RNA sequence: GAGCGUUCUGAAGACCUGCUCUCUAGGCUACUCGCGGAGAACUUGUUUCUCUGAGCUUCCUCGCCGCCUAGGGGAAAGUCCCCGGACCCUGGGCAGAGAGUGCCGCGUGCUUUCACGCGCGCUAUACCCUCUGGCAAGCUCACGCUUCUUCCGCCAAGAAGCUCUCAGGGCCGAGCGGGUGAGUGCUGAGGGGCUCUCGUCAGUUCCAUAGUUACGCAGGUAGUGCGCAUGUGCUUCUUUCCCAAGGAGGCGGUCGCACCAACAGAACGGGGCUCAUUCUCAGGACGCU
Numbered sequence: 001g002a003g004c005g006u007u008c009u010g011a012a013g014a015c016c017u018g019c020u021c022u023c024u025a026g027g028c029u030a031c032u033c034g035c036g037g038a039g040a041a042c043u044u045g046u047u048u049c050u051c052u053g054a055g056c057u058u059c060c061u062c063g064c065c066g067c068c069u070a071g072g073g074g075a076a077a078g079u080c081c082c083c084g085g086a087c088c089c090u091g092g093g094c095a096g097a098g099a100g101u102g103c104c105g106c107g108u109g110c111u112u113u114c115a116c117g118c119g120c121g122c123u124a125u126a127c128c129c130u131c132u133g134g135c136a137a138g139c140u141c142a143c144g145c146u147u148c149u150u151c152c153g154c155c156a157a158g159a160a161g162c163u164c165u166c167a168g169g170g171c172c173g174a175g176c177g178g179g180u181g182a183g184u185g186c187u188g189a190g191g192g193g194c195u196c197u198c199g200u201c202a203g204u205u206c207c208a209u210a211g212u213u214a215c216g217c218a219g220g221u222a223g224u225g226c227g228c229a230u231g232u233g234c235u236u237c238u239u240u241c242c243c244a245a246g247g248a249g250g251c252g253g254u255c256g257c258a259c260c261a262a263c264a265g266a267a268c269g270g271g272g273c274u275c276a277u278u279c280u281c282a283g284g285a286c287g288c289u
Base pairs, nucleotide, nucleotide: 002289003288004287005286006285007284008283009282010281011280014221015220016219017218018217019216022072023071024070025069026068027067028066037051038050039049040048041047077274078273080272081271082270083269092104093103094102095101105122106121107120108119109118110117125192130189131188134186135185136184140182141181142180143179151178152177153176154175161171162170163169164168223259224258225257226256227255
RNA: RNase MRP
Organism: Naja naja